[Rfam]
RNA: Small nucleolar RNA Z221/R21b
RNA sequence: GGGCUAUGAUGAUCAGAGAUAGUCAUGCACCACUCUGAUUUUAAAUGCUGAUAAAUUUCUCACACCCAUUAUUUUCAUGAGCCU
Number, nucleotide and partner (000 for none) at each position: 001g084002g083003g082004c081005u000006a000007u000008g000009a000010u000011g000012a000013u000014c000015a000016g000017a000018g000019a000020u000021a000022g000023u000024c000025a000026u000027g000028c000029a000030c000031c000032a000033c000034u000035c000036u000037g000038a000039u000040u000041u000042u000043a000044a000045a000046u000047g000048c000049u000050g000051a000052u000053a000054a000055a000056u000057u000058u000059c000060u000061c000062a000063c000064a000065c000066c000067c000068a000069u000070u000071a000072u000073u000074u000075u000076c000077a000078u000079g000080a000081g004082c003083c002084u001